[Rfam]
RNA: Small nucleolar RNA SNORA47
Organism: Labrus bergylta
RNA sequence: UGGAGGACUGAGAAGGUUAAUCAGCUUGUGCUGUGCUGUUCUAACUGGUUAUAACCUCCAAGACUAACAUACAAACCACAAUUUUAUUUGGCUCUGCUACAAGCAGAGCUGAUGUGUGUUUGUGAACAAUAU
Numbered sequence: 001u002g003g004a005g006g007a008c009u010g011a012g013a014a015g016g017u018u019a020a021u022c023a024g025c026u027u028g029u030g031c032u033g034u035g036c037u038g039u040u041c042u043a044a045c046u047g048g049u050u051a052u053a054a055c056c057u058c059c060a061a062g063a064c065u066a067a068c069a070u071a072c073a074a075a076c077c078a079c080a081a082u083u084u085u086a087u088u089u090g091g092c093u094c095u096g097c098u099a100c101a102a103g104c105a106g107a108g109c110u111g112a113u114g115u116g117u118g119u120u121u122g123u124g125a126a127c128a129a130u131a132u
Base pairs, nucleotide, nucleotide: 002059003058004057005056006055015046016045017044018043019040020039022038023037024036025035077124078123079122081120085116086115094111096109097108098107100106